[Rfam]
RNA sequence: GGAAAAUGAUGAAUGCAAUUUGGUCCGUGUUUAUGACAUUCACUGAUUUUUACUAAUUGCAAACAUGUUCUGAUUCC
Numbered sequence: 001g002g003a004a005a006a007u008g009a010u011g012a013a014u015g016c017a018a019u020u021u022g023g024u025c026c027g028u029g030u031u032u033a034u035g036a037c038a039u040u041c042a043c044u045g046a047u048u049u050u051u052a053c054u055a056a057u058u059g060c061a062a063a064c065a066u067g068u069u070c071u072g073a074u075u076c077c
Base pairs, nucleotide, nucleotide: 001077002076003075004074